[Rfam]
RNA: Glycine riboswitch aptamer
RNA sequence: AGACGGACUUCUGGAGAGACCUAUAAGUAGCAACAUCUUUGUAUUGACACCAAGAUGUGCUCUAGGCGCCGAAGGGGCAAGAAGAGUAAAACAACUCCUCCAAUCUCUCAGGCAAAAGGACAGAAGCUAAAAG
Numbered sequence: 001a002g003a004c005g006g007a008c009u010u011c012u013g014g015a016g017a018g019a020c021c022u023a024u025a026a027g028u029a030g031c032a033a034c035a036u037c038u039u040u041g042u043a044u045u046g047a048c049a050c051c052a053a054g055a056u057g058u059g060c061u062c063u064a065g066g067c068g069c070c071g072a073a074g075g076g077g078c079a080a081g082a083a084g085a086g087u088a089a090a091a092c093a094a095c096u097c098c099u100c101c102a103a104u105c106u107c108u109c110a111g112g113c114a115a116a117a118g119g120a121c122a123g124a125a126g127c128u129a130a131a132a133g
Stems, first nucleotide, its partner, number of pairs: 006128001008126006020066004068113003071109002075107003081100002